RNA sequence: CCUCCCAAGCCUCUCGACGAUGCUCACAUGGGAGGG
Numbered sequence: 001c002c003u004c005c006c007a008a009g010c011c012u013c014u015c016g017a018c019g020a021u022g023c024u025c026a027c028a029u030g031g032g033a034g035g036g
Stems, first nucleotide, its partner, number of pairs: 001035006008024003
The record is a 36-nucleotide RNA sequence from Sanguibacter keddieii, which matches "abiF RNA" in Rfam. Lineage of the source: Bacteria > Bacillati > Actinomycetota > Micrococcales > Sanguibacter keddieii. The family has 126 seed sequences and 282 matches in Rfam 15.1. Rfam describes the family as follows. Actinobacteria, Bacteroidetes, Clostridia, Proteobacteria, one Clostridia phage. The family's consensus secondary structure is taken from published work. It is one of the family's seed sequences.